[Rfam]
RNA sequence: UAAAGGCGAUGAUGCGAAAGGUUGCCGAAACACCCGGCCCCUUUGCCAUGGCGGGUGGUUGGGAAAUUUUCGCGGAGUAUGUCUAUUCAAAAUGGGCGAAAA
Numbered sequence: 001u002a003a004a005g006g007c008g009a010u011g012a013u014g015c016g017a018a019a020g021g022u023u024g025c026c027g028a029a030a031c032a033c034c035c036g037g038c039c040c041c042u043u044u045g046c047c048a049u050g051g052c053g054g055g056u057g058g059u060u061g062g063g064a065a066a067u068u069u070u071c072g073c074g075g076a077g078u079a080u081g082u083c084u085a086u087u088c089a090a091a092a093u094g095g096g097c098g099a100a101a102a
Stems, first nucleotide, its partner, number of pairs: 014073003018070004025062004080101001082099002087096001088094001
A member of the RNA family "S10-Clostridia ribosomal protein leader" from Virgibacillus sp. MSP4-1, 102 nucleotides long. Pairs were carried over by alignment from the consensus structure, which is taken from published work. The source organism's lineage runs through Bacteria, Bacillota, Bacilli, Bacillaceae and Virgibacillus. On this family, see Eckert and Weinberg, BMC Microbiol 2020: "Discovery of 20 novel ribosomal leader candidates in bacteria and archaea".